The record is a 78-nucleotide sequence from Chiloscyllium punctatum, which matches "mir-17 microRNA precursor family" in Rfam. The match comes from Rfam's covariance-model search (71 bits). The source organism's lineage runs through Eukaryota, Eumetazoa, Gnathostomata, Galeoidea and Chiloscyllium. The base pairs follow the family's consensus structure, which was predicted with RNAalifold. Rfam describes the family as follows. This family represents the microRNA (miRNA) precursor mir-17, family, which includes mir-20, mir-91, and mir-103. miRNAs are transcribed as ~70nt precursors (modelled here) and subsequently processed by the Dicer enzyme to give a ~22nt product. Gene Ontology terms of the family: RISC complex and miRNA-mediated post-transcriptional gene silencing.
RNA sequence: CGAGUAGUGCCAAAGUGCUGACAGUGCAGGUAGUGAUGCGGACUUCUACUGCAGUGUCAGCACUUAACGUACUCCUUG
Number, nucleotide and partner (000 for none) at each position: 001c000002g000003a000004g075005u000006a073007g072008u000009g070010c069011c000012a000013a065014a064015g063016u062017g061018c060019u059020g058021a057022c056023a055024g000025u053026g052027c051028a000029g050030g049031u048032a047033g046034u000035g000036a000037u000038g000039c000040g000041g000042a000043c000044u000045u000046c033047u032048a031049c030050u029051g027052c026053a025054g000055u023056g022057u021058c020059a019060g018061c017062a016063c015064u014065u013066a000067a000068c000069g010070u009071a000072c007073u006074c000075c004076u000077u000078g000